[Rfam]
RNA sequence: AGUUUUUCGGCUACAGUGCUGGCCAAAAUUA
Number, nucleotide and partner (000 for none) at each position: 001a000002g030003u000004u028005u027006u026007u025008c000009g024010g023011c022012u021013a020014c018015a000016g000017u000018g014019c000020u013021g012022g011023c010024c009025a007026a006027a005028a004029u000030u002031a000